The record is an 85-nucleotide RNA from Fictibacillus macauensis, which matches "Group II catalytic intron D1-D4-1" in Rfam. Its family is annotated with Group II intron splicing in the Gene Ontology. Group II introns are found in rRNA, tRNA and mRNA of organelles in fungi, plants and protists, and also in mRNA in bacteria. The source organism's lineage runs through Bacteria, Bacillota, Bacilli, Fictibacillaceae and Fictibacillus macauensis. Pairs were carried over by alignment from the consensus structure. The match comes from Rfam's covariance-model search (56 bits).
[Rfam]
RNA sequence: UAACCUAUCUUAGCGAUAAGUAGCUGAACAGUCAGAAGUCAGCAGAAGUCGUAGUACUAAUGGGUCUAGAACCAUUAGGAAGAAC
Numbered sequence: 001u002a003a004c005c006u007a008u009c010u011u012a013g014c015g016a017u018a019a020g021u022a023g024c025u026g027a028a029c030a031g032u033c034a035g036a037a038g039u040c041a042g043c044a045g046a047a048g049u050c051g052u053a054g055u056a057c058u059a060a061u062g063g064g065u066c067u068a069g070a071a072c073c074a075u076u077a078g079g080a081a082g083a084a085c
Stems, first nucleotide, its partner, number of pairs: 001026002005023003009020004039046002048085002057078006